Rfam assigns this 92-nucleotide RNA sequence from Streptomonospora litoralis to the family "Glycine riboswitch aptamer". Lineage of the source: Bacteria > Actinomycetota > Streptosporangiales > Nocardiopsidaceae > Streptomonospora.
RNA sequence: CGAUACCACGCGGGAGAGACCCCAUCCAACGGGGCGCCGACGGGGCAACACUCCCCAGUAACCUCUCAGGCACCAAGGACCGCGUGGAGGAG
Numbered sequence: 001c002g003a004u005a006c007c008a009c010g011c012g013g014g015a016g017a018g019a020c021c022c023c024a025u026c027c028a029a030c031g032g033g034g035c036g037c038c039g040a041c042g043g044g045g046c047a048a049c050a051c052u053c054c055c056c057a058g059u060a061a062c063c064u065c066u067c068a069g070g071c072a073c074c075a076a077g078g079a080c081c082g083c084g085u086g087g088a089g090g091a092g
Base pairs, nucleotide, nucleotide: 006087007086008085009084010083011082012081013080020034021033022032023031036071037070038069039067040066043065044064045063049058
Dot-bracket structure: .....((((((((......((((.......)))).(((((..(((...(........)....))))).)))........)))))))).....
Pairs were carried over by alignment from the consensus structure. It scores 68 bits against the family's covariance model.